RNA: tRNA
RNA sequence: UGUGGUGUAGCUCAGUGGUAGAGUGCUUGCCUGGUAUGCAGGAGACCCUGGGUCCAAUCCCCAGUACCAUGA
Dot-bracket structure: (((((((..((((.......)))).(((((.......))))).....(((((.......)))))))))))).